[Rfam]
RNA sequence: AGCCGCAUCUUUGGGGAGUAGCCGCACGCUAUAGCGUGACAAACGUCAACAUACUUGUUUAAACUCAUUCCAUGAGUAAAAACAUGGCGUUUGUAUCUUGUUGUCAAUCUGAGUAUUUUCUAUUCGCUUGACAACCUGACUGGCAAGACC
Numbered sequence: 001a002g003c004c005g006c007a008u009c010u011u012u013g014g015g016g017a018g019u020a021g022c023c024g025c026a027c028g029c030u031a032u033a034g035c036g037u038g039a040c041a042a043a044c045g046u047c048a049a050c051a052u053a054c055u056u057g058u059u060u061a062a063a064c065u066c067a068u069u070c071c072a073u074g075a076g077u078a079a080a081a082a083c084a085u086g087g088c089g090u091u092u093g094u095a096u097c098u099u100g101u102u103g104u105c106a107a108u109c110u111g112a113g114u115a116u117u118u119u120c121u122a123u124u125c126g127c128u129u130g131a132c133a134a135c136c137u138g139a140c141u142g143g144c145a146a147g148a149c150c
Stems, first nucleotide, its partner, number of pairs: 026037003039094010056084005096148006

Shown here is a 150-nucleotide RNA from Acinetobacter populi, a member of the family "Manganese Mn2+ riboswitch aptamer (yybP-ykoY)".
It scores 46 bits against the family's covariance model.
Rfam's curators write: This RNA was originally discovered in E. coli during a large scale screen and was named SraF. The family was later found to exist upstream of related families of protein genes in many bacteria, including the the yybP and ykoK genes in B. subtilis.
Gene Ontology term of the family: manganese ion binding.
The family has 29 seed sequences and 1,126 matches in Rfam 15.1.